RNA sequence: UUUGGGUCAAUGAUGUUCAACGAAUAUCUGCGUUAUCUAUCUGCAAAUUUCCAAUUAAGGAAUUCGAAGAUGAUCAUAUUGUUACUGAGAUCUGAA
Numbered sequence: 001u002u003u004g005g006g007u008c009a010a011u012g013a014u015g016u017u018c019a020a021c022g023a024a025u026a027u028c029u030g031c032g033u034u035a036u037c038u039a040u041c042u043g044c045a046a047a048u049u050u051c052c053a054a055u056u057a058a059g060g061a062a063u064u065c066g067a068a069g070a071u072g073a074u075c076a077u078a079u080u081g082u083u084a085c086u087g088a089g090a091u092c093u094g095a096a
Base pairs, nucleotide, nucleotide: 001096002095003094004093005092006091007090
The family of this 96-nucleotide sequence from Rhamnella rubrinervis is "Small nucleolar RNA snoR27".
The organism belongs to Rhamnella, within Eukaryota.
Its Rfam clan is "snR68 clan".
Gene Ontology terms of the family: RNA processing and nucleolus.